[Rfam]
RNA sequence: UCUUGGUCCAUUAUUACUUUUGGUACGCGCUAUGCCAAACUCUACUCGUACCGUGAGUAAUAAUGCACUGAGA
Dot-bracket structure: ........((((((((((..(((((((.(...............).)))))))..))))))))))........
RNA: mir-126 microRNA precursor family